[Rfam]
This 123-nucleotide RNA from Homo sapiens belongs to the Rfam family "Small nucleolar RNA SNORA63".
NCBI's taxonomy places the organism under Eukaryota, Metazoa, Gnathostomata, Mammalia, Homo.
The literature on the family includes a 1997 paper in Proc Natl Acad Sci U S A by Mishra and Eliceiri, "Three small nucleolar RNAs that are involved in ribosomal RNA precursor processing".
The family's RNA type in Rfam is H/ACA-box small nucleolar RNA.
Rfam's curators write: E3 belongs to the H/ACA class of snoRNAs and is involved in the processing of eukaryotic pre-rRNA and has regions of complementarity to 18S rRNA. E3 is encoded in introns in the gene for protein synthesis initiation factor 4AII.
RNA sequence: AUGCAGGUACUGUUACAAUACAACUGAUGUGUUUUGUUGUCGUUCCCCCUGCUUAAAGCACUUGAUGCAUAACUCUGUCUACCUUCAUUCCGUAGUAAGACAGAGACGCUUGGCUUCAGACAU
Numbered sequence: 001a002u003g004c005a006g007g008u009a010c011u012g013u014u015a016c017a018a019u020a021c022a023a024c025u026g027a028u029g030u031g032u033u034u035u036g037u038u039g040u041c042g043u044u045c046c047c048c049c050u051g052c053u054u055a056a057a058g059c060a061c062u063u064g065a066u067g068c069a070u071a072a073c074u075c076u077g078u079c080u081a082c083c084u085u086c087a088u089u090c091c092g093u094a095g096u097a098a099g100a101c102a103g104a105g106a107c108g109c110u111u112g113g114c115u116u117c118a119g120a121c122a123u
Stems, first nucleotide, its partner, number of pairs: 003052005015040006022033003074104004079099002082095001